[Rfam]
Nucleotides: 127
Base pairs, nucleotide, nucleotide: 007027008026009025010024011023012021013020014019030083031082032081033080034079035078040075041074042073043052044051045050056072057071058070059069060068061067087117088116089115090114091113092112093111094110095109096108
Number, partner (000 for none) and nucleotide at each position: 001000u002000a003000u004000a005000u006000a007027u008026g009025c010024a011023g012021g013020u014019a015000g016000u017000a018000a019014u020013a021012c022000a023011c024010u025009g026008u027007g028000u029000a030083c031082c032081a033080a034079c035078g036000a037000g038000c039000a040075g041074u042073g043052a044051a045050u046000u047000u048000a049000c050045g051044u052043u053000u054000a055000a056072g057071c058070g059069u060068a061067c062000u063000u064000u065000g066000a067061g068060u069059a070058c071057g072056u073042c074041a075040u076000c077000u078035c079034g080033u081032u082031g083030g084000g085000g086000a087117a088116a089115a090114a091113c092112a093111c094110c095109u096108u097000u098000a099000u100000c101000g102000a103000a104000u105000g106000a107000u108096a109095a110094g111093g112092u113091g114090u115089u116088u117087u118000a119000u120000c121000u122000u123000u124000a125000u126000a127000a